[Rfam]
RNA: MIR1120/MIR1122 microRNA precursor family
RNA sequence: GUACUCCCUCCAUCCCAUAAUAUAAGAGCGUUUUUGAUACUAGUGUAGUGUCAAAAACGCUCUUAUAUUACGGGACGGAGGGAGUAC
Number, nucleotide and partner (000 for none) at each position: 001g000002u000003a085004c084005u083006c000007c081008c080009u079010c078011c077012a000013u075014c074015c073016c072017a000018u000019a069020a068021u067022a066023u065024a064025a063026g062027a061028g060029c059030g058031u057032u056033u055034u054035u053036g052037a051038u050039a049040c048041u047042a000043g000044u000045g000046u000047a041048g040049u039050g038051u037052c036053a035054a034055a033056a032057a031058c030059g029060c028061u027062c026063u025064u024065a023066u022067a021068u020069u019070a000071c000072g016073g015074g014075a013076c000077g011078g010079a009080g008081g007082g000083a005084g004085u003086a000087c000